[Rfam]
RNA sequence: AGUGGGAGGACGAUGAAUUCGCUUCGGCGGGUUCAGUCUGACCGCGUGCCUUUUGCAUAAUGA
Numbered sequence: 001a002g003u004g005g006g007a008g009g010a011c012g013a014u015g016a017a018u019u020c021g022c023u024u025c026g027g028c029g030g031g032u033u034c035a036g037u038c039u040g041a042c043c044g045c046g047u048g049c050c051u052u053u054u055g056c057a058u059a060a061u062g063a
Stems, first nucleotide, its partner, number of pairs: 002045004008039004049062001051060001
Rfam assigns this 63-nucleotide part of an RNA from Syntrophobacter fumaroxidans to the family "Bacterial large subunit ribosomal RNA". It scores 2935 bits against the family's covariance model. The family's consensus secondary structure is taken from published work. Gene Ontology terms of the family: structural constituent of ribosome and ribosome.